[Rfam]
RNA sequence: GCCACAUGAUGAUUAUAGACGCGGCGGCAGCCUUCGGGCCGUGACGACCUGCUAUCUAUCACCCUUGUCUGAUGGCU
Numbered sequence: 001g002c003c004a005c006a007u008g009a010u011g012a013u014u015a016u017a018g019a020c021g022c023g024g025c026g027g028c029a030g031c032c033u034u035c036g037g038g039c040c041g042u043g044a045c046g047a048c049c050u051g052c053u054a055u056c057u058a059u060c061a062c063c064c065u066u067g068u069c070u071g072a073u074g075g076c077u
Base pairs, nucleotide, nucleotide: 001076002075003074004073030039031038032037